Shown here is a 101-nucleotide sequence from Aquarana catesbeiana, a member of the family "Vault RNA". It is annotated as a non-coding RNA gene.

RNA sequence: AGGUAAGCAAAUACCUCGGCGGUUACUUCCUUGGCAAGCUACAGAAUUCCUUCUGCAAUCCUUCGGGGGUUUAAAACCCGCGGGCGCCACCUGACCCAUUU
Numbered sequence: 001a002g003g004u005a006a007g008c009a010a011a012u013a014c015c016u017c018g019g020c021g022g023u024u025a026c027u028u029c030c031u032u033g034g035c036a037a038g039c040u041a042c043a044g045a046a047u048u049c050c051u052u053c054u055g056c057a058a059u060c061c062u063u064c065g066g067g068g069g070u071u072u073a074a075a076a077c078c079c080g081c082g083g084g085c086g087c088c089a090c091c092u093g094a095c096c097c098a099u100u101u
Stems, first nucleotide, its partner, number of pairs: 002096003006092002015084003019081004027075002